The family of this 64-nucleotide RNA sequence from Mytilus coruscus is "Selenocysteine insertion sequence 1".
The incorporation of selenocysteine into a protein sequence is directed by an in-frame UGA codon (usually a stop codon) within the coding region of the mRNA. Selenoprotein mRNAs contain a conserved secondary structure in the 3' UTR that is required for the distinction of UGA stop from UGA selenocysteine.
RNA sequence: CUGACUUUUAAUGACGUCGGUACACUAAAUUCGUUGGAUGUGUACUGAUUGAUGCUUUAGUCUG
Numbered sequence: 001c002u003g004a005c006u007u008u009u010a011a012u013g014a015c016g017u018c019g020g021u022a023c024a025c026u027a028a029a030u031u032c033g034u035u036g037g038a039u040g041u042g043u044a045c046u047g048a049u050u051g052a053u054g055c056u057u058u059a060g061u062c063u064g
Stems, first nucleotide, its partner, number of pairs: 001064001003062003016049010031038002
It scores 37 bits against the family's covariance model. It is annotated as a cis-regulatory element.